This 129-nucleotide RNA sequence from Malurus elegans belongs to the Rfam family "U11 spliceosomal RNA". For this family Rfam cites "Additional low-abundance human small nuclear ribonucleoproteins: U11, U12, etc" (Montzka and Steitz, Proc Natl Acad Sci U S A, 1988). A search with the family's covariance model found it, with a score of 105 bits. Gene Ontology terms of the family: pre-mRNA 5'-splice site binding, U11 snRNP and mRNA 5'-splice site recognition. It is annotated as a spliceosomal small nuclear RNA. The base pairs follow the family's consensus structure, which is taken from published work.
RNA sequence: AAAAAGGGCUUCUGCCGUGCGUGGCACGGGGGGGCCGCGCGCCACCUCCGCGGAAUCGACAUCAAGAGAUUUCGGAAGCACAAUUUUUGCAUCGAGGGGCCGCCGGUAACCGCUCGUUCCGGUACCCCG
Numbered sequence: 001a002a003a004a005a006g007g008g009c010u011u012c013u014g015c016c017g018u019g020c021g022u023g024g025c026a027c028g029g030g031g032g033g034g035c036c037g038c039g040c041g042c043c044a045c046c047u048c049c050g051c052g053g054a055a056u057c058g059a060c061a062u063c064a065a066g067a068g069a070u071u072u073c074g075g076a077a078g079c080a081c082a083a084u085u086u087u088u089g090c091a092u093c094g095a096g097g098g099g100c101c102g103c104c105g106g107u108a109a110c111c112g113c114u115c116g117u118u119c120c121g122g123u124a125c126c127c128c129g
Stems, first nucleotide, its partner, number of pairs: 008079005013026005027050006034043001036041001051074007097127003102123005108118003